[Rfam]
RNA sequence: CGUCAUAGCCCUCCUUGGGCGUUUCCUCCCUAGACUUGGGGCCGCUCCGUUCGCGUGAGCGGCCCUCUUUCUUUCUGGAA
Numbered sequence: 001c002g003u004c005a006u007a008g009c010c011c012u013c014c015u016u017g018g019g020c021g022u023u024u025c026c027u028c029c030c031u032a033g034a035c036u037u038g039g040g041g042c043c044g045c046u047c048c049g050u051u052c053g054c055g056u057g058a059g060c061g062g063c064c065c066u067c068u069u070u071c072u073u074u075c076u077g078g079a080a
Stems, first nucleotide, its partner, number of pairs: 008020004039065009